[Rfam]
Shown here is a 109-nucleotide RNA from Varanus komodoensis, a member of the family "Small nucleolar RNA SNORD89". Rfam links the family to the GO terms RNA processing and nucleolus. snoRNA HBII-289 belongs to the family of C/D snoRNAs. It is the human orthologue of the mouse MBII-289 and has no identified RNA target. Taxonomically the source falls in Varanus (Eukaryota, Euteleostomi, Dipnotetrapodomorpha, Sauropsida).

RNA sequence: GCUGAGGAGUGAUGACAAUGAAAGGCCGAAUUGCAGUGCCUGUUAACAGUUUUCUCUCUAAAGGCACGAUGACAAAACUCCUGAAGCGACUCUUUCUUCUGACCUCAGC
Numbered sequence: 001g002c003u004g005a006g007g008a009g010u011g012a013u014g015a016c017a018a019u020g021a022a023a024g025g026c027c028g029a030a031u032u033g034c035a036g037u038g039c040c041u042g043u044u045a046a047c048a049g050u051u052u053u054c055u056c057u058c059u060a061a062a063g064g065c066a067c068g069a070u071g072a073c074a075a076a077a078c079u080c081c082u083g084a085a086g087c088g089a090c091u092c093u094u095u096c097u098u099c100u101g102a103c104c105u106c107a108g109c
Stems, first nucleotide, its partner, number of pairs: 001109007014099002025034002035095002038092001040088001041086001043084003049067002052064002068080002071078001